[Rfam]
RNA: BsrF
Organism: Robertmurraya siralis
RNA sequence: GCGAUGAGCUGAAUUGCGUAAGACGAAUUGACAUUCCUACGGGAAAUGCACAAUGUGGAGUGCAGUCAAGCGCCGCAGUUUUCGAAGAAAAAGGACUUCCUUUCCGGAAGUCCUU
Numbered sequence: 001g002c003g004a005u006g007a008g009c010u011g012a013a014u015u016g017c018g019u020a021a022g023a024c025g026a027a028u029u030g031a032c033a034u035u036c037c038u039a040c041g042g043g044a045a046a047u048g049c050a051c052a053a054u055g056u057g058g059a060g061u062g063c064a065g066u067c068a069a070g071c072g073c074c075g076c077a078g079u080u081u082u083c084g085a086a087g088a089a090a091a092a093g094g095a096c097u098u099c100c101u102u103u104c105c106g107g108a109a110g111u112c113c114u115u
Stems, first nucleotide, its partner, number of pairs: 014078005024072002028069005035044002047064002050061002091115009